[Rfam]
RNA sequence: AUGCAGUUCUUCUCCAGAAGUUGAGGAGGAAGUUAUGAAACAGGCAACUAUUUCACAAUUUCACUUCAAUUUCAUAACUUUUGAUGUCUGUAUUAGUCAGAAGUUGAACGGAAAUGCUAAAUAAGUCUAGCUCGAGAUGCGUGUGCUGGUUUGCCACUGUGCGAUCUGGUUCCUUUUCUCCUCGGGACAAUU
Numbered sequence: 001a002u003g004c005a006g007u008u009c010u011u012c013u014c015c016a017g018a019a020g021u022u023g024a025g026g027a028g029g030a031a032g033u034u035a036u037g038a039a040a041c042a043g044g045c046a047a048c049u050a051u052u053u054c055a056c057a058a059u060u061u062c063a064c065u066u067c068a069a070u071u072u073c074a075u076a077a078c079u080u081u082u083g084a085u086g087u088c089u090g091u092a093u094u095a096g097u098c099a100g101a102a103g104u105u106g107a108a109c110g111g112a113a114a115u116g117c118u119a120a121a122u123a124a125g126u127c128u129a130g131c132u133c134g135a136g137a138u139g140c141g142u143g144u145g146c147u148g149g150u151u152u153g154c155c156a157c158u159g160u161g162c163g164a165u166c167u168g169g170u171u172c173c174u175u176u177u178c179u180c181c182u183c184g185g186g187a188c189a190a191u192u
Stems, first nucleotide, its partner, number of pairs: 003117003007113002017073002020070007076105004081100005131186006139178001145170005151164004
The family of this 192-nucleotide sequence from Caenorhabditis remanei is "Caenorhabditis snoRNA ceN104". The literature on the family includes a 2007 paper in BMC Mol Biol by Jia et al., "Systematic identification of non-coding RNA 2,2,7-trimethylguanosine cap structures in Caenorhabditis elegans". It is annotated as an H/ACA-box small nucleolar RNA.